This 87-nucleotide RNA from Cottoperca gobio belongs to the Rfam family "mir-726 microRNA precursor family".
[Rfam]
RNA sequence: UCGAGGGUAGGUCUGGAAUUCCGCUAGUUCUGAACUAUUCAUGGUUGGUAAAAGUUCUCUACUAGCAGGACUCGGAUUUGCUCCCGA
Numbered sequence: 001u002c003g004a005g006g007g008u009a010g011g012u013c014u015g016g017a018a019u020u021c022c023g024c025u026a027g028u029u030c031u032g033a034a035c036u037a038u039u040c041a042u043g044g045u046u047g048g049u050a051a052a053a054g055u056u057c058u059c060u061a062c063u064a065g066c067a068g069g070a071c072u073c074g075g076a077u078u079u080g081c082u083c084c085c086g087a
Stems, first nucleotide, its partner, number of pairs: 003085001005083007013075004019070003023066006032057005038052002

Pairs were carried over by alignment from the consensus structure, which was predicted with RNAalifold.